[Rfam]
RNA sequence: AAUGACUCAAAAAUCUAAUCUUAUUUAUACCUAGAAUAUGGCUGGGCGUUUCUACCUCGUACCGUAAAUGCGAGACAAUAAGAGAACUCAAUUUUUUA
Numbered sequence: 001a002a003u004g005a006c007u008c009a010a011a012a013a014u015c016u017a018a019u020c021u022u023a024u025u026u027a028u029a030c031c032u033a034g035a036a037u038a039u040g041g042c043u044g045g046g047c048g049u050u051u052c053u054a055c056c057u058c059g060u061a062c063c064g065u066a067a068a069u070g071c072g073a074g075a076c077a078a079u080a081a082g083a084g085a086a087c088u089c090a091a092u093u094u095u096u097u098a
Stems, first nucleotide, its partner, number of pairs: 019083007030046005056074006